RAGATH-18 RNA: a 59-nucleotide RNA from Clostridium uliginosum. Rfam's curators write: Actinobacteria, Firmicutes, Fusobacteria, Thermotogae (1 example). By type it is a small RNA. The match comes from Rfam's covariance-model search (47 bits).

RNA sequence: CCUAGCGUUAUAUCAAACCAAAGUAGCUUUUAGCAAAAUGGGACACGUUGAACAGGGAA
Numbered sequence: 001c002c003u004a005g006c007g008u009u010a011u012a013u014c015a016a017a018c019c020a021a022a023g024u025a026g027c028u029u030u031u032a033g034c035a036a037a038a039u040g041g042g043a044c045a046c047g048u049u050g051a052a053c054a055g056g057g058a059a
Stems, first nucleotide, its partner, number of pairs: 001056003005046001007044003018041003026034003